[Rfam]
RNA sequence: AUCAGAGUAGGAAGUAUAGCGUUAAGUGCUGGAAGGAUGGGAUGUUGCCUUUUAGACGAAAAGUAUCUUUUGAUAUUUGCGAUUAUAUUUUUGCAUUCGCUGCA
Numbered sequence: 001a002u003c004a005g006a007g008u009a010g011g012a013a014g015u016a017u018a019g020c021g022u023u024a025a026g027u028g029c030u031g032g033a034a035g036g037a038u039g040g041g042a043u044g045u046u047g048c049c050u051u052u053u054a055g056a057c058g059a060a061a062a063g064u065a066u067c068u069u070u071u072g073a074u075a076u077u078u079g080c081g082a083u084u085a086u087a088u089u090u091u092u093g094c095a096u097u098c099g100c101u102g103c104a
Stems, first nucleotide, its partner, number of pairs: 003102003010092010020081003026057002029055008040098005061078006
Shown here is a 104-nucleotide RNA sequence from Vagococcus vulneris, a member of the family "THF (Tetrahydrofolate) riboswitch aptamer". About the family: Tetrahydrofolate (THF) riboswitch was first reported for Ames et al. as an RNA motif in 5' untranslated (5'-UTR)regions of folate transport and biosynthesis genes in Firmicutes genomes.